[Rfam]
RNA sequence: GCAGCUUCAAGGUCACAAGGCUCGUCACGAACGCAAGAGGCUGGACAUCCCAGCCCUCUCCUCCUCGCGAGCGGGCCAAGGUCCUGGAAUUCCAACCCCCCUUUCUUCACUCGAAGUCUGACCGGUCUUAGCGGACCCUCGACGCCAACCGCCGAGCCGUGCCCGACCAGAAAUGCGUCCCCGCCUCACCAUCUUUCAGAUACCCGGAGAAGCUCUAGAUGAGCGGAGGGCAUGUGGGGAUGGGGACUUGGUAGGGGUACGGGGGGUCGCCUUUGUAGUAUCACCGUUUUCCUUUUUGGAAAGUCCAGAUUCGAGCUCUGACUCGGACUCGGAUGUGUCUCUCUACUCUGCCCAGGGAUCGAGACCCGGCUACAAGGCUUUAGUGCAAUUUGGUGACGCUCUCUCAACUCUUCGUCUUUUCCAUGGCGAGGAGGAGGGUAACUCGAUCAGGACUACUCUGGGGCUGC
Numbered sequence: 001g002c003a004g005c006u007u008c009a010a011g012g013u014c015a016c017a018a019g020g021c022u023c024g025u026c027a028c029g030a031a032c033g034c035a036a037g038a039g040g041c042u043g044g045a046c047a048u049c050c051c052a053g054c055c056c057u058c059u060c061c062u063c064c065u066c067g068c069g070a071g072c073g074g075g076c077c078a079a080g081g082u083c084c085u086g087g088a089a090u091u092c093c094a095a096c097c098c099c100c101c102u103u104u105c106u107u108c109a110c111u112c113g114a115a116g117u118c119u120g121a122c123c124g125g126u127c128u129u130a131g132c133g134g135a136c137c138c139u140c141g142a143c144g145c146c147a148a149c150c151g152c153c154g155a156g157c158c159g160u161g162c163c164c165g166a167c168c169a170g171a172a173a174u175g176c177g178u179c180c181c182c183g184c185c186u187c188a189c190c191a192u193c194u195u196u197c198a199g200a201u202a203c204c205c206g207g208a209g210a211a212g213c214u215c216u217a218g219a220u221g222a223g224c225g226g227a228g229g230g231c232a233u234g235u236g237g238g239g240a241u242g243g244g245g246a247c248u249u250g251g252u253a254g255g256g257g258u259a260c261g262g263g264g265g266g267u268c269g270c271c272u273u274u275g276u277a278g279u280a281u282c283a284c285c286g287u288u289u290u291c292c293u294u295u296u297u298g299g300a301a302a303g304u305c306c307a308g309a310u311u312c313g314a315g316c317u318c319u320g321a322c323u324c325g326g327a328c329u330c331g332g333a334u335g336u337g338u339c340u341c342u343c344u345a346c347u348c349u350g351c352c353c354a355g356g357g358a359u360c361g362a363g364a365c366c367c368g369g370c371u372a373c374a375a376g377g378c379u380u381u382a383g384u385g386c387a388a389u390u391u392g393g394u395g396a397c398g399c400u401c402u403c404u405c406a407a408c409u410c411u412u413c414g415u416c417u418u419u420u421c422c423a424u425g426g427c428g429a430g431g432a433g434g435a436g437g438g439u440a441a442c443u444c445g446a447u448c449a450g451g452a453c454u455a456c457u458c459u460g461g462g463g464c465u466g467c
Stems, first nucleotide, its partner, number of pairs: 001467004007461003012397004016392003020072005039055005044049001083451005098264002124137005138156004143151001157262007177247007398439007
A member of the RNA family "Nuclear RNase P" from Cryptococcus amylolentus, 467 nucleotides long. Rfam links the family to the GO terms ribonuclease P complex, tRNA processing and ribonuclease P activity. About the family: Ribonuclease P (RNase P) is a ubiquitous endoribonuclease, found in archaea, bacteria and eukarya as well as chloroplasts and mitochondria. Its best characterised activity is the generation of mature 5'-ends of tRNAs by cleaving the 5'-leader elements of precursor-tRNAs. Cellular RNase Ps are ribonucleoproteins. RNA from bacterial RNase Ps retains its catalytic activity in the absence of the protein subunit, i.e. it is a ribozyme. On this family, see Frank and Pace, Annu Rev Biochem 1998: "Ribonuclease P: unity and diversity in a tRNA processing ribozyme". It is annotated as a ribozyme.